The record is a 74-nucleotide RNA sequence from Novipirellula maiorica, which matches "tRNA" in Rfam.
RNA sequence: GCUGUGGUACGCAAACCGGCAAAGCGGCGAAUUUCAAACGUUCGUGUUUGAGGGUUCGACUCCCUCCCGCGGCA
Numbered sequence: 001g002c003u004g005u006g007g008u009a010c011g012c013a014a015a016c017c018g019g020c021a022a023a024g025c026g027g028c029g030a031a032u033u034u035c036a037a038a039c040g041u042u043c044g045u046g047u048u049u050g051a052g053g054g055u056u057c058g059a060c061u062c063c064c065u066c067c068c069g070c071g072g073c074a
Stems, first nucleotide, its partner, number of pairs: 001073007010026003028044005050066005

Overview:
NCBI's taxonomy places the organism under Bacteria, Planctomycetota, Planctomycetia, Novipirellula, Novipirellula maiorica. Rfam classes the family as a transfer RNA. The base pairs follow the family's consensus structure, which is taken from published work.